Shown here is a 126-nucleotide RNA from Acetitomaculum ruminis, a member of the family "FMN riboswitch aptamer (RFN element)". About the family: The RFN element is a highly conserved domain that is found frequently in the 5'-untranslated regions of prokaryotic mRNAs that encode for flavin mononucleotide (FMN) biosynthesis and transport proteins. This element is a metabolite-dependent riboswitch that directly binds FMN in the absence of proteins. In Bacillus subtilis, the riboswitch most likely controls gene expression by causing premature transcription termination within the 5' untranslated region of the ribDEAHT operon and precluding access to the ribosome-binding site of ypaA mRNA.The FMN riboswitch structure, reported in present an FMN-bound six-stem junction, adopts a butterfly-like scaffold, stapled together by opposingly directed but nearly identically folded peripheral domains. The source organism's lineage runs through Bacteria, Clostridia, Lachnospiraceae, Acetitomaculum and Acetitomaculum ruminis.
[Rfam]
RNA sequence: UAUUUUCUUCGGGGCAGGGUGCGAUUCCCUACCGGCGGUUAUAGCCCGCGAAUGUCUGAUUUUAUCAGAUACCGAUUUGGUGAAAUUCCAAAGCCGACAGUAUAGUCUGGAUGAGAGAAGAAUGGC
Numbered sequence: 001u002a003u004u005u006u007c008u009u010c011g012g013g014g015c016a017g018g019g020u021g022c023g024a025u026u027c028c029c030u031a032c033c034g035g036c037g038g039u040u041a042u043a044g045c046c047c048g049c050g051a052a053u054g055u056c057u058g059a060u061u062u063u064a065u066c067a068g069a070u071a072c073c074g075a076u077u078u079g080g081u082g083a084a085a086u087u088c089c090a091a092a093g094c095c096g097a098c099a100g101u102a103u104a105g106u107c108u109g110g111a112u113g114a115g116a117g118a119a120g121a122a123u124g125g126c
Stems, first nucleotide, its partner, number of pairs: 003124001005122006017029003031106002033096002035049004044094002053071002076092005098109003